The record is a 368-nucleotide RNA sequence from Photobacterium profundum, which matches "transfer-messenger RNA" in Rfam. It is one of the family's seed sequences. Lineage of the source: Bacteria > Pseudomonadati > Pseudomonadota > Vibrionaceae > Photobacterium.
[Rfam]
RNA sequence: GGGGCUGAUUCAGGAUUCGACAGGAUCAAGAAGGCUUGUGGAGCAUGCCGUGGGGCGGUUGGCCACGUAAAAAGCCGCAAAAAAAUAGUCGCAAACGACGAAAACUUCGCACUAGCAGCUUAAUAACCUGCUAGCGCACUUCUACCCUAGCUUCCGCUUGUAAGACGGGGAAUCAUAGAAGUUCAAACCCAAACGAGAUAGCGAGGGAACCUUUGACUAGAGAGGUGAACCGCGAAAUAGAAUUCUGGUAUGUAUUUACAUGGCGUGUCUGUUCGCAGUGUACUUACGAGAAUAAAGAUAGACUAAGCAUGUAGCGCCUAUGGUUGGAUUGCUCUUGGACGCGGGUUCAAAUCCCGCCAGCUCCACCA
Numbered sequence: 001g002g003g004g005c006u007g008a009u010u011c012a013g014g015a016u017u018c019g020a021c022a023g024g025a026u027c028a029a030g031a032a033g034g035c036u037u038g039u040g041g042a043g044c045a046u047g048c049c050g051u052g053g054g055g056c057g058g059u060u061g062g063c064c065a066c067g068u069a070a071a072a073a074g075c076c077g078c079a080a081a082a083a084a085a086u087a088g089u090c091g092c093a094a095a096c097g098a099c100g101a102a103a104a105c106u107u108c109g110c111a112c113u114a115g116c117a118g119c120u121u122a123a124u125a126a127c128c129u130g131c132u133a134g135c136g137c138a139c140u141u142c143u144a145c146c147c148u149a150g151c152u153u154c155c156g157c158u159u160g161u162a163a164g165a166c167g168g169g170g171a172a173u174c175a176u177a178g179a180a181g182u183u184c185a186a187a188c189c190c191a192a193a194c195g196a197g198a199u200a201g202c203g204a205g206g207g208a209a210c211c212u213u214u215g216a217c218u219a220g221a222g223a224g225g226u227g228a229a230c231c232g233c234g235a236a237a238u239a240g241a242a243u244u245c246u247g248g249u250a251u252g253u254a255u256u257u258a259c260a261u262g263g264c265g266u267g268u269c270u271g272u273u274c275g276c277a278g279u280g281u282a283c284u285u286a287c288g289a290g291a292a293u294a295a296a297g298a299u300a301g302a303c304u305a306a307g308c309a310u311g312u313a314g315c316g317c318c319u320a321u322g323g324u325u326g327g328a329u330u331g332c333u334c335u336u337g338g339a340c341g342c343g344g345g346u347u348c349a350a351a352u353c354c355c356g357c358c359a360g361c362u363c364c365a366c367c368a
Stems, first nucleotide, its partner, number of pairs: 001364007021337005027331003033325004040318002044311005049067005055078006112134002115131004138182006145170004151164003157197005201233003216249006252287003257282005263276003267303007341357005